[Rfam]
Rfam assigns this 125-nucleotide RNA from Odocoileus virginianus to the family "Small nucleolar RNA ACA64". Rfam classes the family as an H/ACA-box small nucleolar RNA. The literature on the family includes a 2006 paper in RNA by Schattner et al., "A computational screen for mammalian pseudouridylation guide H/ACA RNAs".

RNA sequence: AUUGGUUGUAAAUCACUUGACUUUGGCCAUGGCCACAGGUGAGAUUUGGCACCCAGAGCCACCAGUGGCCUUAGCUCACUGCCCACUCCUCCAUGUGGGGAGGUGAAAUCCAGGCCCUGACAUGC
Numbered sequence: 001a002u003u004g005g006u007u008g009u010a011a012a013u014c015a016c017u018u019g020a021c022u023u024u025g026g027c028c029a030u031g032g033c034c035a036c037a038g039g040u041g042a043g044a045u046u047u048g049g050c051a052c053c054c055a056g057a058g059c060c061a062c063c064a065g066u067g068g069c070c071u072u073a074g075c076u077c078a079c080u081g082c083c084c085a086c087u088c089c090u091c092c093a094u095g096u097g098g099g100g101a102g103g104u105g106a107a108a109u110c111c112a113g114g115c116c117c118u119g120a121c122a123u124g125c
Stems, first nucleotide, its partner, number of pairs: 005050004010045001013042004019034001021032002065118001067116005076106005084097003